RNA sequence: GGGCUCAUGGCGCAACGGUUAGCGCAGGGGACUCAUAAUCCCUGGGUUGUAGGUUCGAAUCCUACUGGGCCCA
Numbered sequence: 001g002g003g004c005u006c007a008u009g010g011c012g013c014a015a016c017g018g019u020u021a022g023c024g025c026a027g028g029g030g031a032c033u034c035a036u037a038a039u040c041c042c043u044g045g046g047u048u049g050u051a052g053g054u055u056c057g058a059a060u061c062c063u064a065c066u067g068g069g070c071c072c073a
Base pairs, nucleotide, nucleotide: 001072002071003070004069005068006067007066010025011024012023013022027043028042029041030040031039049065050064051063052062053061
This 73-nucleotide sequence from Tractidigestivibacter scatoligenes belongs to the Rfam family "tRNA".
The family's RNA type in Rfam is transfer RNA.